[Rfam]
This 96-nucleotide RNA from Bacteriovorax sp. BSW11_IV belongs to the Rfam family "Bacterial small signal recognition particle RNA".
RNA sequence: GUCGAUCCUACAGCGAGUAUUUUCUUGGUGAACUCCGCCAGGUCGGGAACGAAGCAACGGUAGCCGUAGAGGUAUUGUGUUGUAUGGAUCGGCUGC
Numbered sequence: 001g002u003c004g005a006u007c008c009u010a011c012a013g014c015g016a017g018u019a020u021u022u023u024c025u026u027g028g029u030g031a032a033c034u035c036c037g038c039c040a041g042g043u044c045g046g047g048a049a050c051g052a053a054g055c056a057a058c059g060g061u062a063g064c065c066g067u068a069g070a071g072g073u074a075u076u077g078u079g080u081u082g083u084a085u086g087g088a089u090c091g092g093c094u095g096c
Stems, first nucleotide, its partner, number of pairs: 004090005010083006016075001018074006026066004035060003043052003